[Rfam]
RNA sequence: GGCCAAUGAUGCAAUACAUAUUUGCUACUCUUGAGUAAGAAUGAUGAUAAAUAUCACCUUUUUGUCUGAGGCC
Number, nucleotide and partner (000 for none) at each position: 001g073002g072003c071004c070005a000006a000007u000008g000009a000010u000011g000012c000013a000014a000015u000016a000017c000018a000019u000020a000021u000022u000023u000024g000025c000026u000027a000028c000029u000030c000031u000032u000033g000034a000035g000036u000037a000038a000039g000040a000041a000042u000043g000044a000045u000046g000047a000048u000049a000050a000051a000052u000053a000054u000055c000056a000057c000058c000059u000060u000061u000062u000063u000064g000065u000066c000067u000068g000069a000070g004071g003072c002073c001
Overview
A member of the RNA family "Small nucleolar RNA SNORD24" from Desmophyllum pertusum, 73 nucleotides long. The literature on the family includes a 1995 paper in Nucleic Acids Res by Qu et al., "U24, a novel intron-encoded small nucleolar RNA with two 12 nt long, phylogenetically conserved complementarities to 28S rRNA". It is annotated as a C/D-box small nucleolar RNA. Gene Ontology terms of the family: nucleolus and RNA processing. The base pairs follow the family's consensus structure, which was predicted with PFOLD. The source organism's lineage runs through Eukaryota, Metazoa, Scleractinia, Caryophylliidae and Desmophyllum.